Nucleotides: 241
Base pairs, nucleotide, nucleotide: 014058015057016056017055018054019053059146060145061144062143067141068140069139070138072137073136074135164235165234166233167232168231169230170229171228172227173226174225175224178198179197180196181195182194183193
Number, partner (000 for none) and nucleotide at each position: 001000a002000c003000a004000c005000g006000a007000g008000a009000g010000a011000g012000g013000a014058g015057g016056u017055g018054g019053u020000c021000c022000a023000a024000a025000g026000u027000u028000g029000u030000a031000u032000a033000c034000c035000a036000a037000c038000a039000g040000g041000a042000c043000a044000c045000g046000u047000g048000a049000g050000g051000u052000g053019g054018c055017u056016g057015u058014c059146c060145g061144c062143u063000a064000a065000g066000g067141a068140c069139c070138a071000c072137c073136a074135c075000a076000g077000g078000c079000u080000c081000c082000a083000g084000c085000c086000g087000g088000c089000c090000g091000g092000c093000g094000a095000a096000c097000a098000c099000g100000g101000c102000a103000g104000a105000c106000g107000c108000u109000g110000g111000u112000c113000u114000u115000c116000c117000a118000g119000c120000g121000c122000c123000g124000u125000u126000g127000a128000c129000g130000c131000g132000g133000g134000c135074g136073u137072g138070u139069g140068g141067u142000c143062g144061g145060c146059g147000a148000a149000u150000c151000c152000a153000c154000a155000a156000c157000a158000g159000c160000c161000a162000c163000c164235g165234g166233c167232c168231c169230u170229c171228g172227g173226g174225g175224u176000u177000u178198c179197c180196g181195g182194g183193a184000g185000a186000a187000g188000u189000c190000c191000a192000a193183u194182c195181c196180c197179g198178g199000a200000c201000c202000u203000u204000g205000u206000g207000c208000a209000c210000c211000a212000g213000c214000a215000c216000a217000a218000g219000g220000a221000g222000u223000c224175a225174c226173c227172c228171c229170g230169g231168g232167g233166g234165u235164u236000u237000c238000u239000c240000a241000c